[Rfam]
RNA sequence: GGGAGGUCUGAUCCCAUGCCUCCUGGGAGGUGUGAUAUCAUGGUUCCUGGGAGGUAUGAUAUCGUGGUUCCU
Numbered sequence: 001g002g003g004a005g006g007u008c009u010g011a012u013c014c015c016a017u018g019c020c021u022c023c024u025g026g027g028a029g030g031u032g033u034g035a036u037a038u039c040a041u042g043g044u045u046c047c048u049g050g051g052a053g054g055u056a057u058g059a060u061a062u063c064g065u066g067g068u069u070c071c072u
Base pairs, nucleotide, nucleotide: 001071002070003069004068015058016057017056018055020053021052022051023050024049025048026047027046028045029044031042032041033040034039
RNA: mir-3689 microRNA precursor family